RNA sequence: GAUAAAAAAAAAUGUAAGUUGCUCUGGAUAAGAGUGUCUGCUAAAUGGCAGAAA
Numbered sequence: 001g002a003u004a005a006a007a008a009a010a011a012a013u014g015u016a017a018g019u020u021g022c023u024c025u026g027g028a029u030a031a032g033a034g035u036g037u038c039u040g041c042u043a044a045a046u047g048g049c050a051g052a053a054a
Base pairs, nucleotide, nucleotide: 013043014041015040016039020036021035022034023033024032025031
RNA: UnaL2 LINE 3' element
Organism: Hemibagrus wyckioides